[Rfam]
RNA sequence: UGCCUUACAAGUAGUUGUAAGGGUGGGAGAUUGUUGUCAACAGUUCAACCAAUAAAUCGAAAUCGAAAGUUGG
Numbered sequence: 001u002g003c004c005u006u007a008c009a010a011g012u013a014g015u016u017g018u019a020a021g022g023g024u025g026g027g028a029g030a031u032u033g034u035u036g037u038c039a040a041c042a043g044u045u046c047a048a049c050c051a052a053u054a055a056a057u058c059g060a061a062a063u064c065g066a067a068a069g070u071u072g073g
Stems, first nucleotide, its partner, number of pairs: 003022008053068001057066003

RT-6 RNA: a 73-nucleotide sequence. By type it is a small RNA. Pairs were carried over by alignment from the consensus structure, which is taken from published work.